[Rfam]
RNA sequence: UCCUCUCUACUCUGUAAGUCGCUUUGGAUAAAAGUGUCUGCCAAAUGCAUAAAA
Numbered sequence: 001u002c003c004u005c006u007c008u009a010c011u012c013u014g015u016a017a018g019u020c021g022c023u024u025u026g027g028a029u030a031a032a033a034g035u036g037u038c039u040g041c042c043a044a045a046u047g048c049a050u051a052a053a054a
Stems, first nucleotide, its partner, number of pairs: 013043001014041003020036006
Dot-bracket structure: ............((((...((((((.....))))))..))).)...........
UnaL2 LINE 3' element: a 54-nucleotide sequence from Menidia menidia. Rfam's curators write: The eel long interspersed element (LINE) UnaL2 and its partner short interspersed element (SINE) share a conserved 3' tail containing a stem-loop that is critical for their retrotransposition. It is annotated as a cis-regulatory element. Gene Ontology term of the family: transposition, RNA-mediated.